[Rfam]
RNA sequence: GACACAAGUGAUGAAUGUCAAGGGACUUAAUACUGAAACCUCAUGUUGCUGUGCGAUAUGCUGAUGUGC
Numbered sequence: 001g002a003c004a005c006a007a008g009u010g011a012u013g014a015a016u017g018u019c020a021a022g023g024g025a026c027u028u029a030a031u032a033c034u035g036a037a038a039c040c041u042c043a044u045g046u047u048g049c050u051g052u053g054c055g056a057u058a059u060g061c062u063g064a065u066g067u068g069c
Base pairs, nucleotide, nucleotide: 003068004067005066006065
Shown here is a 69-nucleotide sequence from Nannospalax galili, a member of the family "Small nucleolar RNA SNORD82". On this family, see Galardi et al., Mol Cell Biol 2002: "Purified box C/D snoRNPs are able to reproduce site-specific 2'-O-methylation of target RNA in vitro".